A member of the RNA family "mir-459 microRNA precursor family" from Salmo trutta, 81 nucleotides long.
RNA sequence: GCUCCCGCCUUCAGUAACAAGGAUUCAUCCUGUUGUUGUAUUCUGAACUAGCAGGGAAUCUCUGUUACUGGGGGUGAGGGU
Numbered sequence: 001g002c003u004c005c006c007g008c009c010u011u012c013a014g015u016a017a018c019a020a021g022g023a024u025u026c027a028u029c030c031u032g033u034u035g036u037u038g039u040a041u042u043c044u045g046a047a048c049u050a051g052c053a054g055g056g057a058a059u060c061u062c063u064g065u066u067a068c069u070g071g072g073g074g075u076g077a078g079g080g081u
Stems, first nucleotide, its partner, number of pairs: 011071009021061006029055007039046001
A search with the family's covariance model found it, with a score of 83 bits.